[Rfam]
Annotation
A member of the RNA family "Mammalian CPEB3 ribozyme" from Alligator sinensis, 75 nucleotides long. The family's consensus secondary structure is taken from published work. The organism belongs to Alligator, within Eukaryota. The match comes from Rfam's covariance-model search (35 bits).

RNA sequence: GUUGCAGCUUCAAGGCCAUAGCAGAAGUGCUCAUGGCACAGUCCUGCCAGAUUUCAUGAAUCUUUGAAUUCUACU
Numbered sequence: 001g002u003u004g005c006a007g008c009u010u011c012a013a014g015g016c017c018a019u020a021g022c023a024g025a026a027g028u029g030c031u032c033a034u035g036g037c038a039c040a041g042u043c044c045u046g047c048c049a050g051a052u053u054u055c056a057u058g059a060a061u062c063u064u065u066g067a068a069u070u071c072u073a074c075u
Stems, first nucleotide, its partner, number of pairs: 014043003020075002023072004027039003049063006